RNA sequence: UAAGAUAAAUGAAUAUGUGCCCAUAUAAAUCUCAGAAUACGGCUGAGAAGUUUCUACCAAGUGACCGUAAAUCACUUGACUAUGGAUGAAAGUGUACCUAGG
Numbered sequence: 001u002a003a004g005a006u007a008a009a010u011g012a013a014u015a016u017g018u019g020c021c022c023a024u025a026u027a028a029a030u031c032u033c034a035g036a037a038u039a040c041g042g043c044u045g046a047g048a049a050g051u052u053u054c055u056a057c058c059a060a061g062u063g064a065c066c067g068u069a070a071a072u073c074a075c076u077u078g079a080c081u082a083u084g085g086a087u088g089a090a091a092g093u094g095u096a097c098c099u100a101g102g
Stems, first nucleotide, its partner, number of pairs: 018088002021085005030048006058078007
RNA: Purine riboswitch aptamer